[Rfam]
RNA sequence: GCAUAUAAAUAGUAGCAUAUAAAUAGUAGUCACAUAUAAAUAUUUAUAAGCAGCUACUAUUUAUAUGCUACUAUUUAUAUGC
Numbered sequence: 001g002c003a004u005a006u007a008a009a010u011a012g013u014a015g016c017a018u019a020u021a022a023a024u025a026g027u028a029g030u031c032a033c034a035u036a037u038a039a040a041u042a043u044u045u046a047u048a049a050g051c052a053g054c055u056a057c058u059a060u061u062u063a064u065a066u067g068c069u070a071c072u073a074u075u076u077a078u079a080u081g082c
Stems, first nucleotide, its partner, number of pairs: 001082003005078003011072008022061008
This 82-nucleotide RNA sequence from Xenopus tropicalis belongs to the Rfam family "mir-16 microRNA precursor family". The literature on the family includes a 2020 paper in Mol Cell by Jin et al., "Structural Basis for pri-miRNA Recognition by Drosha". Gene Ontology terms of the family: RISC complex and miRNA-mediated post-transcriptional gene silencing. The source organism's lineage runs through Eukaryota, Eumetazoa, Anura, Pipidae and Silurana.